[Rfam]
RNA sequence: AGCUCAAUGAUCGAUGCCAAUUGUCUUUGGCCAUAUACACUAUUCUGAAUGUUCAAUUGAAUCUGCUGAAAACAGAUUAUAUGAGAGCU
Number, nucleotide and partner (000 for none) at each position: 001a089002g088003c087004u086005c085006a000007a000008u000009g000010a000011u000012c000013g000014a000015u000016g000017c000018c000019a000020a000021u000022u000023g000024u000025c000026u000027u000028u000029g000030g000031c000032c000033a000034u000035a000036u000037a000038c000039a000040c000041u000042a000043u000044u000045c000046u000047g000048a000049a000050u000051g000052u000053u000054c000055a000056a000057u000058u000059g000060a000061a000062u000063c000064u000065g000066c000067u000068g000069a000070a000071a000072a000073c000074a000075g000076a000077u000078u000079a000080u000081a000082u000083g000084a000085g005086a004087g003088c002089u001
RNA: Small nucleolar RNA U54
Organism: Dioscorea zingiberensis